Overview:
The family of this 225-nucleotide RNA from Eumeta japonica is "U12 minor spliceosomal RNA". Gene Ontology terms of the family: mRNA branch site recognition, pre-mRNA branch point binding and U12 snRNP. The source organism's lineage runs through Eukaryota, Pancrustacea, Panorpida, Psychidae and Eumeta. A reference for the family is Otake et al. (2002), "The divergent U12-type spliceosome is required for pre-mRNA splicing and is essential for development in Drosophila", Mol Cell. The family's RNA type in Rfam is spliceosomal small nuclear RNA.
RNA sequence: GUGCCUAAAUUACGAUAAGUAAGGAAAACCAUAUAAGUCUUGCUAAUCGCUUGACUGGUUGCUUCUAGGCAAUAUGAGGCGAGACGUUAUUAAAGCCAUUUAUUUGACUUUUAAUGUUCGAGUCUUGUAUGAAGCGCUAAUUUUUGAAUGGGUACAGGUCGUCCCUUUGAAUUCAUGAGUCCACUACUUUUCGGACUGUAGAGUUUGGGUGAAGCGAUCUGCCCA
Numbered sequence: 001g002u003g004c005c006u007a008a009a010u011u012a013c014g015a016u017a018a019g020u021a022a023g024g025a026a027a028a029c030c031a032u033a034u035a036a037g038u039c040u041u042g043c044u045a046a047u048c049g050c051u052u053g054a055c056u057g058g059u060u061g062c063u064u065c066u067a068g069g070c071a072a073u074a075u076g077a078g079g080c081g082a083g084a085c086g087u088u089a090u091u092a093a094a095g096c097c098a099u100u101u102a103u104u105u106g107a108c109u110u111u112u113a114a115u116g117u118u119c120g121a122g123u124c125u126u127g128u129a130u131g132a133a134g135c136g137c138u139a140a141u142u143u144u145u146g147a148a149u150g151g152g153u154a155c156a157g158g159u160c161g162u163c164c165c166u167u168u169g170a171a172u173u174c175a176u177g178a179g180u181c182c183a184c185u186a187c188u189u190u191u192c193g194g195a196c197u198g199u200a201g202a203g204u205u206u207g208g209g210u211g212a213a214g215c216g217a218u219c220u221g222c223c224c225a
Base pairs, nucleotide, nucleotide: 004024005023006022008020036056037055038054039053042050058135059134060133062131149225150224151223152222153221156220157219158218159217160216161215162214165209166208169206170205171204172203173202179196180195181194182193